[Rfam]
RNA sequence: CAGGUGCUGGACCUACCGGCACCACAGACACAGCUGCCAUGCUUCACCUGUGACAUCAGGGCACAGAGGAAGUGGCUAUUUCUGCACUCAGUGCUCAGAACAGUGGGCACUAAGAAUGG
Numbered sequence: 001c002a003g004g005u006g007c008u009g010g011a012c013c014u015a016c017c018g019g020c021a022c023c024a025c026a027g028a029c030a031c032a033g034c035u036g037c038c039a040u041g042c043u044u045c046a047c048c049u050g051u052g053a054c055a056u057c058a059g060g061g062c063a064c065a066g067a068g069g070a071a072g073u074g075g076c077u078a079u080u081u082c083u084g085c086a087c088u089c090a091g092u093g094c095u096c097a098g099a100a101c102a103g104u105g106g107g108c109a110c111u112a113a114g115a116a117u118g119g
Stems, first nucleotide, its partner, number of pairs: 004062002007059004024051004082119003087114002092109006

Description: The family of this 119-nucleotide RNA sequence from Myotis davidii is "Small nucleolar RNA SNORA43". The base pairs follow the family's consensus structure, which was predicted with RNAfold. A search with the family's covariance model found it, with a score of 111 bits. Its family is annotated with RNA processing and nucleolus in the Gene Ontology. ACA43 is a member of the H/ACA class of snoRNA that guide the sites of modification of uridines to pseudouridines. The family is grouped with related families in Rfam's "SNORA17 clan". It is annotated as an H/ACA-box small nucleolar RNA. NCBI's taxonomy places the organism under Eukaryota, Craniata, Gnathostomata, Chiroptera, Myotis.